[Rfam]
A member of the RNA family "Plastid-psbA-1 3UTR RNA" from Musa balbisiana, 111 nucleotides long.
On this family, see Richter et al., Plant Commun 2023: "Retrograde signaling in plants: A critical review focusing on the GUN pathway and beyond".
Pairs were carried over by alignment from the consensus structure, which was predicted with LocARNA.
Plastid psbA-1 is a non-coding RNA (ncRNA) present in plastids.
The family is grouped with related families in Rfam's "Plastid-psbA 3UTR RNA clan".

RNA sequence: UCGAAGUUUCAUCUACAAAUGGAUAAGAUUUUUGUCUUAGUGUUAAUACGAAUCGUUGAAACAAGUAGCAAUACCCCAGUCUUUCUUCGCAGACCUGGUUUAUGCUACGUU
Dot-bracket structure: .......(((((......))))).......................................((((((((.((..(((((((........)))).)))..)))))))).))